[Rfam]
RNA sequence: GAAGCCUUGCAGGGCUGACGGAUGAGUGGAAUUGACCACAUGUCCUGCAACGUUAUGAUCAGCCGACCGUCUGGGCAGGGCAU
Number, nucleotide and partner (000 for none) at each position: 001g000002a000003a054004g053005c052006c000007u050008u049009g048010c047011a046012g045013g000014g000015c042016u000017g071018a070019c069020g068021g067022a000023u000024g000025a000026g039027u038028g037029g036030a000031a000032u000033u000034g000035a000036c029037c028038a027039c026040a000041u000042g015043u000044c000045c012046u011047g010048c009049a008050a007051c000052g005053u004054u003055a000056u000057g000058a000059u000060c078061a000062g076063c075064c074065g000066a000067c021068c020069g019070u018071c017072u000073g000074g064075g063076c062077a000078g060079g000080g000081c000082a000083u000
Rfam assigns this 83-nucleotide RNA from Mitsuokella jalaludinii to the family "ZMP/ZTP riboswitch aptamer (pfl RNA motif)". The literature on the family includes a 2015 paper in Nat Struct Mol Biol by Jones and Ferre-D'Amare, "Recognition of the bacterial alarmone ZMP through long-distance association of two RNA subdomains". Rfam 15.1 lists 3,295 matches to the family in 2,545 species. Gene Ontology terms of the family: regulation of purine nucleotide biosynthetic process and one-carbon metabolic process.